[Rfam]
RNA sequence: AGAGGUUGCACGUUCAAGGCCAUAGCAGAACUGCUCAUGGGGUGGCCUGUCAGAUUCCAAUGAAUCUGCAAAUUCUGCU
Numbered sequence: 001a002g003a004g005g006u007u008g009c010a011c012g013u014u015c016a017a018g019g020c021c022a023u024a025g026c027a028g029a030a031c032u033g034c035u036c037a038u039g040g041g042g043u044g045g046c047c048u049g050u051c052a053g054a055u056u057c058c059a060a061u062g063a064a065u066c067u068g069c070a071a072a073u074u075c076u077g078c079u
Stems, first nucleotide, its partner, number of pairs: 018047004024079007032042001051068007